[Rfam]
Rfam assigns this 130-nucleotide sequence from Callorhinchus milii to the family "Small nucleolar RNA SNORA13".
RNA sequence: UGCCUUUGUGUUUCCCACUUUCUUUGCUAUAGAUGAGUGCGGUGUCAAAAAAGGCACAAAGUAACUUCAGCUGUUACAGGUGUCCUGGCAGUCUUUAUUUUUCAGGAUUUGUUAUACAGCUGAAAUACCA
Dot-bracket structure: .((((((.((.(.((((((..(............))))).)).).))..))))))...........((((((((.....(.(((((...(........)....))))).).....)))))))).......
The sequence is in the family's curated seed alignment. Rfam links the family to the GO terms RNA processing and nucleolus. The family's RNA type in Rfam is H/ACA-box small nucleolar RNA. The family is grouped with related families in Rfam's "SNORA13 clan". The base pairs follow the family's consensus structure, which was predicted with CMfinder. Rfam 15.1 lists 1,034 matches to the family in 605 species.